[Rfam]
RNA sequence: AACAGAGUAGAUUCGUGUGCGUGAAGUGCGGAGUGAACGGGGAGUUGUCACUUUGACGAAAAGCCUUAGGCUUGCGGUAUACGGAUUGCAUCCCGCUGAU
Numbered sequence: 001a002a003c004a005g006a007g008u009a010g011a012u013u014c015g016u017g018u019g020c021g022u023g024a025a026g027u028g029c030g031g032a033g034u035g036a037a038c039g040g041g042g043a044g045u046u047g048u049c050a051c052u053u054u055g056a057c058g059a060a061a062a063g064c065c066u067u068a069g070g071c072u073u074g075c076g077g078u079a080u081a082c083g084g085a086u087u088g089c090a091u092c093c094c095g096c097u098g099a100u
Stems, first nucleotide, its partner, number of pairs: 001100001003098003010087010020076003026057002029055008040093003044089001061073004
Rfam assigns this 100-nucleotide RNA sequence from Firmicutes bacterium CAG:41 to the family "THF (Tetrahydrofolate) riboswitch aptamer". The match comes from Rfam's covariance-model search (84 bits). Lineage of the source: Bacteria > Bacillati > Bacillota.